[Rfam]
RNA: c-di-GMP-I riboswitch aptamer
RNA sequence: CUCCCGAAAAGGCAAAGCUCGCAGAGCUACGCAAAGUCACGGGUUCGACACUGAACGUGCGAAUAGCCGGACCGCCGAA
Numbered sequence: 001c002u003c004c005c006g007a008a009a010a011g012g013c014a015a016a017g018c019u020c021g022c023a024g025a026g027c028u029a030c031g032c033a034a035a036g037u038c039a040c041g042g043g044u045u046c047g048a049c050a051c052u053g054a055a056c057g058u059g060c061g062a063a064u065a066g067c068c069g070g071a072c073c074g075c076c077g078a079a
Stems, first nucleotide, its partner, number of pairs: 012032002017027004036072003040069003043064003050058002